Shown here is a 341-nucleotide RNA from Clostridium sp. CAG:302, a member of the family "Bacterial RNase P class B". NCBI's taxonomy places the organism under Bacteria, Bacillati, Bacillota, Clostridia, Clostridium. Gene Ontology terms of the family: dimeric ribonuclease P complex, ribonuclease P activity and tRNA processing. The match comes from Rfam's covariance-model search (278 bits). The base pairs follow the family's consensus structure, which is taken from published work. Ribonuclease P (RNase P) is a ubiquitous endoribonuclease, found in archaea, bacteria and eukarya as well as chloroplasts and mitochondria.

[Rfam]
RNA sequence: UUAUCUGGGUAAAUGCUGCAUAUAAUUAUGUAGAGGAAAGUCCAUGCUCGCACUAUCUGUGAUGAUAGUAGUGUUUGUGCUUAGGGAAAAAAUAACCUAAGGCAGGUAACUGACGGCGUUCGUUUUAUCUAAGGGAAACUAUGAUAAAAUGGAUAUAAAGUGCCACAGAAACGAGUCUAUGAAGAAAUUCGUAGAAUGAAACGAGGUAAACCCCGCAAGCGAGAAACCCAAAAUAUGGUAGGGGAAUCUUCCGAGGAAAAUAAGAAUCCAAAGAAGAAUGACAUUAUGUCAUAGAUAAAUAUUUACCGCCUAGCAAUAGGUACAGAACAUGGCUUAUAAGA
Numbered sequence: 001u002u003a004u005c006u007g008g009g010u011a012a013a014u015g016c017u018g019c020a021u022a023u024a025a026u027u028a029u030g031u032a033g034a035g036g037a038a039a040g041u042c043c044a045u046g047c048u049c050g051c052a053c054u055a056u057c058u059g060u061g062a063u064g065a066u067a068g069u070a071g072u073g074u075u076u077g078u079g080c081u082u083a084g085g086g087a088a089a090a091a092a093u094a095a096c097c098u099a100a101g102g103c104a105g106g107u108a109a110c111u112g113a114c115g116g117c118g119u120u121c122g123u124u125u126u127a128u129c130u131a132a133g134g135g136a137a138a139c140u141a142u143g144a145u146a147a148a149a150u151g152g153a154u155a156u157a158a159a160g161u162g163c164c165a166c167a168g169a170a171a172c173g174a175g176u177c178u179a180u181g182a183a184g185a186a187a188u189u190c191g192u193a194g195a196a197u198g199a200a201a202c203g204a205g206g207u208a209a210a211c212c213c214c215g216c217a218a219g220c221g222a223g224a225a226a227c228c229c230a231a232a233a234u235a236u237g238g239u240a241g242g243g244g245a246a247u248c249u250u251c252c253g254a255g256g257a258a259a260a261u262a263a264g265a266a267u268c269c270a271a272a273g274a275a276g277a278a279u280g281a282c283a284u285u286a287u288g289u290c291a292u293a294g295a296u297a298a299a300u301a302u303u304u305a306c307c308g309c310c311u312a313g314c315a316a317u318a319g320g321u322a323c324a325g326a327a328c329a330u331g332g333c334u335u336a337u338a339a340g341a
Base pairs, nucleotide, nucleotide: 004341005340006339007337008307009306010305011304012303013302014301016033017032018031019030020029021028038335039334040333042332043331044330045329046328047223048222049221050220051219052069053068054067055066056065057064075218076217077216078215079214080101081100082099083098084097085096102114103112104111105110115213116212118154119153120152121151126146127145128144129143133140134139160211161210162207163206164205176195177194178193179192180191181190182189183188227243228242229241247277248276249275250274251273278292279291280290281289282288283287309320310319311318312317